[Rfam]
RNA sequence: UUGUUUUCUGUUGGAGCAUCAUCAAGAUUCACAAAAAGCAUUUUAAGGUUUUUUUUAAUUGAAUUGAUCAAUCAGCGCUUUACGAAUAUGUUUUUGAGAAUCUUGAUGAUGCUGCAGUGGCAAUAAA
Number, nucleotide and partner (000 for none) at each position: 001u000002u000003g000004u000005u000006u000007u000008c000009u000010g118011u117012u116013g115014g000015a113016g112017c111018a110019u109020c108021a107022u106023c105024a104025a103026g102027a101028u100029u099030c098031a000032c096033a095034a094035a093036a092037a091038g000039c000040a000041u000042u000043u000044u000045a000046a000047g000048g000049u000050u000051u000052u000053u000054u000055u000056u000057a000058a000059u000060u000061g000062a000063a000064u000065u000066g000067a000068u000069c000070a000071a000072u000073c000074a000075g000076c000077g000078c000079u000080u000081u000082a000083c000084g000085a000086a000087u000088a000089u000090g000091u037092u036093u035094u034095u033096g032097a000098g030099a029100a028101u027102c026103u025104u024105g023106a022107u021108g020109a019110u018111g017112c016113u015114g000115c013116a012117g011118u010119g000120g000121c000122a000123a000124u000125a000126a000127a000
The record is a 127-nucleotide RNA sequence from Gossypium aridum, which matches "mir-172 microRNA precursor family" in Rfam. A reference for the family is Jones-Rhoades and Bartel (2004), "Computational Identification of Plant MicroRNAs and Their Targets, Including a Stress-Induced miRNA", Mol Cell. mir-172 has been experimentally verified in Arabidopsis thaliana. This family is thought to target mRNAs coding for APETALA2-like transcription factors. The mature sequence is excised from the 3' arm of the hairpin. Its family is annotated with miRNA-mediated post-transcriptional gene silencing and RISC complex in the Gene Ontology.